[Rfam]
RNA sequence: ACCGAAAAAGGCAAACCCGUCGCGAGGCGGGGACGCAAAGCUCCCGGGACCCCUGAGGUCGGCCGAGCUACCGAAA
Numbered sequence: 001a002c003c004g005a006a007a008a009a010g011g012c013a014a015a016c017c018c019g020u021c022g023c024g025a026g027g028c029g030g031g032g033a034c035g036c037a038a039a040g041c042u043c044c045c046g047g048g049a050c051c052c053c054u055g056a057g058g059u060c061g062g063c064c065g066a067g068c069u070a071c072c073g074a075a076a
Stems, first nucleotide, its partner, number of pairs: 003073002011036002016031006034062001039069004045065003048060003